Notes: This 149-nucleotide sequence from Ursus americanus belongs to the Rfam family "U12 minor spliceosomal RNA". By type it is a spliceosomal small nuclear RNA. Its Rfam clan is "U2 clan". The family has 62 seed sequences and 2,106 matches in Rfam 15.1. A search with the family's covariance model found it, with a score of 85 bits.
RNA sequence: ACGCCUUCAAUUUAUGAGUAAGGAAAAUAACCAUUCGGGUGACACCCGAGUCCUCACUGCUAACAGGCGGUGAAUAUUUGAGUGGGCAAAGAUUGCCCCUGAGGUAACCCACCUCCUUUGCGAGAUGCCUGGGAGUCGUGAUCGGCUCU
Dot-bracket structure: ...((((............)))).........(((((((.....))))))).(.(...........).)..............((((...((((((..((.(((((.(.(.(.......).).).))))).))....)))))).)))).